[Rfam]
RNA sequence: UUCCCACCCGGCCCGGCACUCCACUUUCUGCCGGAUCGAGGUGAAAAAAGGAGGAAGAUCCGCCCGGCUCGCGGCGCGGCAGUGUGGAGACCUGCCGUGGAGGCGUAUCGGCUUUCCGCCGGACGUGAGGAGGCAGACGCGGAGGCGCUACCCCCAGAGCCCACUGCUAUGGCA
Numbered sequence: 001u002u003c004c005c006a007c008c009c010g011g012c013c014c015g016g017c018a019c020u021c022c023a024c025u026u027u028c029u030g031c032c033g034g035a036u037c038g039a040g041g042u043g044a045a046a047a048a049a050g051g052a053g054g055a056a057g058a059u060c061c062g063c064c065c066g067g068c069u070c071g072c073g074g075c076g077c078g079g080c081a082g083u084g085u086g087g088a089g090a091c092c093u094g095c096c097g098u099g100g101a102g103g104c105g106u107a108u109c110g111g112c113u114u115u116c117c118g119c120c121g122g123a124c125g126u127g128a129g130g131a132g133g134c135a136g137a138c139g140c141g142g143a144g145g146c147g148c149u150a151c152c153c154c155c156a157g158a159g160c161c162c163a164c165u166g167c168u169a170u171g172g173c174a
Base pairs, nucleotide, nucleotide: 007040009038010037011036013034014033015032016031017030018029060074061073062072063071066161067160068159069158070157075099076098077097078096079095080094081093082092084091085090103126104125105124106123108122109121110120111119129155130154132152133151135149136148138147139146140145
The family of this 174-nucleotide RNA is "malK-I RNA". Rfam classes the family as a cis-regulatory element. Pairs were carried over by alignment from the consensus structure, which is taken from published work.